[Rfam]
RNA sequence: GCAAAGGGUUCAUAGUUUUGUUAUCUCCCAUUGACAUUGAGUUCUCCUAUCCUAACCUCGGUAAAAACUGAGGUUUUU
Numbered sequence: 001g002c003a004a005a006g007g008g009u010u011c012a013u014a015g016u017u018u019u020g021u022u023a024u025c026u027c028c029c030a031u032u033g034a035c036a037u038u039g040a041g042u043u044c045u046c047c048u049a050u051c052c053u054a055a056c057c058u059c060g061g062u063a064a065a066a067a068c069u070g071a072g073g074u075u076u077u078u
Base pairs, nucleotide, nucleotide: 054074056073057072058071059070060069061068062067
RNA: Photosynthesis regulatory RNA1